[Rfam]
RNA sequence: UCAUGGUGGUGGUGGGACAACCUCAUGGUGGUGGUGGG
Numbered sequence: 001u002c003a004u005g006g007u008g009g010u011g012g013u014g015g016g017a018c019a020a021c022c023u024c025a026u027g028g029u030g031g032u033g034g035u036g037g038g
Stems, first nucleotide, its partner, number of pairs: 001028006